[Rfam]
RNA: mir-290 microRNA precursor family
RNA sequence: GCCAUACUCAAAAUGGAGGCACUCUCCAGCCUUGUGAAAGGGAAAGUGACCCCAUUUUGAGUGUUGC
Dot-bracket structure: ...(((((((((((((.(.((((.(((.............))).)))).).)))))))))))))...